[Rfam]
Source information:
This 76-nucleotide sequence from Escherichia coli belongs to the Rfam family "Nucleoid-associated noncoding RNA 4 (CssrE)". Rfam describes the family as follows. In E. coli small RNA transcribed from repeated extragenic palindromic element (REP325) called nucleoid-associated ncRNA 4 (nRNA4) collaborates HU protein in condensing the DNA. The secondary structure but not the sequence of the RNA is important in nucleoid condensation. Also identified in Shigella as CssrE. The base pairs follow the family's consensus structure, which is taken from published work. It is annotated as a small RNA.
RNA sequence: GGUCGGAUAAGGCGCUCGCACCGCAUCCGACACCGUGCUCAGUGCCUGAUGCGACGCUGAUGCGUCUUAUCAUGCC
Number, nucleotide and partner (000 for none) at each position: 001g000002g031003u030004c029005g028006g027007a026008u025009a000010a000011g022012g021013c000014g019015c000016u000017c000018g000019c014020a000021c012022c011023g000024c000025a008026u007027c006028c005029g004030a003031c002032a000033c000034c000035g000036u000037g000038c000039u000040c000041a000042g000043u000044g075045c074046c000047u072048g071049a070050u069051g068052c000053g066054a065055c064056g063057c062058u000059g000060a000061u000062g057063c056064g055065u054066c053067u000068u051069a050070u049071c048072a047073u000074g045075c044076c000